[Rfam]
RNA sequence: CUUGGGGGGGAUGCCUCAGCCUGGAUUGCGAGAGGGCGCAGGCCAGGCCGAGGGACCCCACUGGUGCACG
Numbered sequence: 001c002u003u004g005g006g007g008g009g010g011a012u013g014c015c016u017c018a019g020c021c022u023g024g025a026u027u028g029c030g031a032g033a034g035g036g037c038g039c040a041g042g043c044c045a046g047g048c049c050g051a052g053g054g055a056c057c058c059c060a061c062u063g064g065u066g067c068a069c070g
Base pairs, nucleotide, nucleotide: 003068004067006065008059009058010057012055014053015052016051017050019048020047021046023044024043026041027040028039029038030037
The record is a 70-nucleotide RNA sequence from Myotis davidii, which matches "mir-9193 microRNA precursor family" in Rfam. The source organism's lineage runs through Eukaryota, Eumetazoa, Amniota, Yangochiroptera and Myotis. The match comes from Rfam's covariance-model search (60 bits). Rfam 15.1 lists 6,008 matches to the family in 8 species. Pairs were carried over by alignment from the consensus structure, which was predicted with RNAalifold.